[Rfam]
RNA sequence: ACGCUAAGAGGUGGGAAAGGUACCCCACGCGCCCUAGCGGUUAAAAAGAGAUGCGGGAUACGCCACCCCGCCUUAGCGU
Dot-bracket structure: ((((((((..(((((...[[[..))))).((.((....)).).....)....(((((....]]]..)))))))))))))
RNA: skipping-rope RNA